[Rfam]
RNA sequence: GGAUGUAACUCUGGAGAAUCCCGUCAACGGGUGCCGAAGGUGCAACGCAGAUUUCUGCGAAUCUCUCAGGCAAAAGGACAGAGAAUGUAAA
Numbered sequence: 001g002g003a004u005g006u007a008a009c010u011c012u013g014g015a016g017a018a019u020c021c022c023g024u025c026a027a028c029g030g031g032u033g034c035c036g037a038a039g040g041u042g043c044a045a046c047g048c049a050g051a052u053u054u055c056u057g058c059g060a061a062u063c064u065c066u067c068a069g070g071c072a073a074a075a076g077g078a079c080a081g082a083g084a085a086u087g088u089a090a091a
Base pairs, nucleotide, nucleotide: 009083010082011081012080013079020031021030022029023028033071034070035069036067037066040065042063047058048057

Rfam assigns this 91-nucleotide RNA from Lachnospiraceae bacterium AM48-27BH to the family "Glycine riboswitch aptamer".